[Rfam]
RNA sequence: UGGGAGGGACGGCCCUCCUAUCCACCAGCAUAUCAGCCGCGGGGACGACCCUG
Numbered sequence: 001u002g003g004g005a006g007g008g009a010c011g012g013c014c015c016u017c018c019u020a021u022c023c024a025c026c027a028g029c030a031u032a033u034c035a036g037c038c039g040c041g042g043g044g045a046c047g048a049c050c051c052u053g
Stems, first nucleotide, its partner, number of pairs: 001020008040053005
This 53-nucleotide RNA sequence from Bradyrhizobium diazoefficiens belongs to the Rfam family "Guanidine-II riboswitch aptamer (mini-ykkC)". Rfam's curators write: Simpler in structure and has fewer highly conserved nucleotide positions than the ykkC-yxkD leader. The base pairs follow the family's consensus structure, which is taken from published work. Lineage of the source: Bacteria > Pseudomonadati > Alphaproteobacteria > Nitrobacteraceae > Bradyrhizobium diazoefficiens.